The record is a 111-nucleotide RNA from Glycine max, which matches "MIR1520 microRNA precursor family" in Rfam. Clan: MIR1520 microRNA precursor clan. Gene Ontology terms of the family: miRNA-mediated post-transcriptional gene silencing and RISC complex.
[Rfam]
RNA sequence: UUGUUAUUGGAUGAUGACGGUAACAUUUUAUAGUAUGAUUGAAUGUCAACUUCAUGAAAGAUAAUUUUUUUCAUUGACCAAUCAAAACAUAACAUGUGACAGUCAUCAUCC
Numbered sequence: 001u002u003g004u005u006a007u008u009g010g011a012u013g014a015u016g017a018c019g020g021u022a023a024c025a026u027u028u029u030a031u032a033g034u035a036u037g038a039u040u041g042a043a044u045g046u047c048a049a050c051u052u053c054a055u056g057a058a059a060g061a062u063a064a065u066u067u068u069u070u071u072c073a074u075u076g077a078c079c080a081a082u083c084a085a086a087a088c089a090u091a092a093c094a095u096g097u098g099a100c101a102g103u104c105a106u107c108a109u110c111c
Stems, first nucleotide, its partner, number of pairs: 020100002023097001025095002029091003034086001036084001038082003